Shown here is a 128-nucleotide RNA sequence from Pontibacillus yanchengensis, a member of the family "SAM riboswitch aptamer (S box leader)".
The match comes from Rfam's covariance-model search (74 bits).
Nucleotides: 128
Stems, first nucleotide, its partner, number of pairs: 001128008013042005021031003025097004043089004048085006098117003101113003
Number, partner (000 for none) and nucleotide at each position: 001128u002127u003126c004125u005124u006123a007122u008121c009000u010000a011000g012000a013042g014041a015040g016039g017038u018000g019000g020000a021031g022030g023029g024000a025097c026096u027095g028094g029023c030022c031021c032000a033000u034000u035000g036000a037000a038017a039016c040015c041014u042013c043089g044088g045087c046086a047000u048085c049084g050083g051082u052081u053080u054000u055000g056000u057000a058000a059000g060000c061000u062000a063000g064000a065000u066000a067000g068000u069000u070000u071000a072000g073000u074000u075000a076000u077000c078000a079000u080053a081052a082051g083050c084049u085048g086046u087045g088044c089043c090000a091000a092000u093000a094028c095027c096026a097025g098117c099116g100115g101113g102112u103111g104000c105000a106000c107000a108000a109000a110000g111103c112102a113101c114000u115100u116099c117098g118000a119000a120000g121008g122007a123006u124005g125004a126003g127002a128001a
The organism belongs to Pontibacillus yanchengensis, within Bacteria.
Its family is annotated with regulation of gene expression in the Gene Ontology.